[Rfam]
RNA sequence: AUUUAGCCCCGAUGGGAGGGAAAAUCCUUUUGUUUUUUUCUUUAAAAAACAAAAGAUUGGAAGGAACAGCGGGACGAGUG
Numbered sequence: 001a002u003u004u005a006g007c008c009c010c011g012a013u014g015g016g017a018g019g020g021a022a023a024a025u026c027c028u029u030u031u032g033u034u035u036u037u038u039u040c041u042u043u044a045a046a047a048a049a050c051a052a053a054a055g056a057u058u059g060g061a062a063g064g065a066a067c068a069g070c071g072g073g074a075c076g077a078g079u080g
Stems, first nucleotide, its partner, number of pairs: 009072003013068002023058004029053010